RNA sequence: GGCAUCGGGGAGCGAUCCCCCGACGAGGCUACGGCUGAAGAAUCGCGUCCAACCUGCACUUGAUGCAAGGACGCGCCAUG
Numbered sequence: 001g002g003c004a005u006c007g008g009g010g011a012g013c014g015a016u017c018c019c020c021c022g023a024c025g026a027g028g029c030u031a032c033g034g035c036u037g038a039a040g041a042a043u044c045g046c047g048u049c050c051a052a053c054c055u056g057c058a059c060u061u062g063a064u065g066c067a068a069g070g071a072c073g074c075g076c077c078a079u080g
Base pairs, nucleotide, nucleotide: 005023006022007021008020009019010018045074046073047072048071049070050069
chrB-a RNA: an 80-nucleotide RNA from Methylobacterium durans. The match comes from Rfam's covariance-model search (75 bits). Lineage of the source: Bacteria > Pseudomonadota > Alphaproteobacteria > Methylobacteriaceae > Methylobacterium.